[Rfam]
RNA sequence: AAUGUGGUUAAUGAUGACUAAUUUUUUUCCCCAUCUUAUCGAAUCUGGUGAAAUCCAAGCUGAAAAUAAGCCAAUUUUGUCUGAAACCACAUC
Number, nucleotide and partner (000 for none) at each position: 001a000002a092003u091004g090005u089006g088007g087008u086009u085010a000011a000012u000013g000014a000015u000016g000017a000018c000019u000020a000021a000022u000023u000024u000025u000026u000027u000028u000029c000030c000031c000032c000033a000034u000035c000036u000037u000038a000039u000040c000041g000042a000043a000044u000045c000046u000047g000048g000049u000050g000051a000052a000053a000054u000055c000056c000057a000058a000059g000060c000061u000062g000063a000064a000065a000066a000067u000068a000069a000070g000071c000072c000073a000074a000075u000076u000077u000078u000079g000080u000081c000082u000083g000084a000085a009086a008087c007088c006089a005090c004091a003092u002093c000
RNA: Small nucleolar SNORD12/SNORD106